[Rfam]
Shown here is a 78-nucleotide sequence from Sphingomonas aliaeris, a member of the family "chrB-a RNA". NCBI's taxonomy places the organism under Bacteria, Pseudomonadati, Alphaproteobacteria, Sphingomonadaceae, Sphingomonas. The family's consensus secondary structure is taken from published work.

RNA sequence: GCCAUGGGGACCGCGAUCUCCCCACGAGGCGUCAGCCGAAGAAUCGCGUCCAGCCCGAUAUGCCAAGGACGCGCCAUG
Numbered sequence: 001g002c003c004a005u006g007g008g009g010a011c012c013g014c015g016a017u018c019u020c021c022c023c024a025c026g027a028g029g030c031g032u033c034a035g036c037c038g039a040a041g042a043a044u045c046g047c048g049u050c051c052a053g054c055c056c057g058a059u060a061u062g063c064c065a066a067g068g069a070c071g072c073g074c075c076a077u078g
Base pairs, nucleotide, nucleotide: 005024006023007022008021009020010019046072047071048070049069050068051067